[Rfam]
RNA sequence: CUUGUCAGACAGGCCAGGAUUGGUGGCAAUGCUGGAUGUCAUGUCAGUAUUGCACUUGUCCCGGCCUUUCUGAUUGGG
Numbered sequence: 001c002u003u004g005u006c007a008g009a010c011a012g013g014c015c016a017g018g019a020u021u022g023g024u025g026g027c028a029a030u031g032c033u034g035g036a037u038g039u040c041a042u043g044u045c046a047g048u049a050u051u052g053c054a055c056u057u058g059u060c061c062c063g064g065c066c067u068u069u070c071u072g073a074u075u076g077g078g
Stems, first nucleotide, its partner, number of pairs: 004074003009069001011067004017061004022056003026053009
RNA: mir-92 microRNA precursor family